[Rfam]
RNA: Listeria sRNA rliA
RNA sequence: GCAUGCAUGCAUAUGCAUACAUGCGUGCAUAUGCAUACAUGAAUGCAUAUGUAUACAAGCAUGCAUAUGCAUACAUGAAUGCAUAUGCAUACAAGCAUGCAUAUGCAUACAUGAAUGCAUAUGCAUACAAGCAUGCAUAUGCAUACAUGUAUGCAUAUGCAUACAUGAAUGCAUAUGCAUACAAGCAUGCAUAUGCAUACAUGAAU
Numbered sequence: 001g002c003a004u005g006c007a008u009g010c011a012u013a014u015g016c017a018u019a020c021a022u023g024c025g026u027g028c029a030u031a032u033g034c035a036u037a038c039a040u041g042a043a044u045g046c047a048u049a050u051g052u053a054u055a056c057a058a059g060c061a062u063g064c065a066u067a068u069g070c071a072u073a074c075a076u077g078a079a080u081g082c083a084u085a086u087g088c089a090u091a092c093a094a095g096c097a098u099g100c101a102u103a104u105g106c107a108u109a110c111a112u113g114a115a116u117g118c119a120u121a122u123g124c125a126u127a128c129a130a131g132c133a134u135g136c137a138u139a140u141g142c143a144u145a146c147a148u149g150u151a152u153g154c155a156u157a158u159g160c161a162u163a164c165a166u167g168a169a170u171g172c173a174u175a176u177g178c179a180u181a182c183a184a185g186c187a188u189g190c191a192u193a194u195g196c197a198u199a200c201a202u203g204a205a206u
Stems, first nucleotide, its partner, number of pairs: 001024005007018004025200001028195007035144002038141004043072009095136006102129001105124005146167007154159001176187003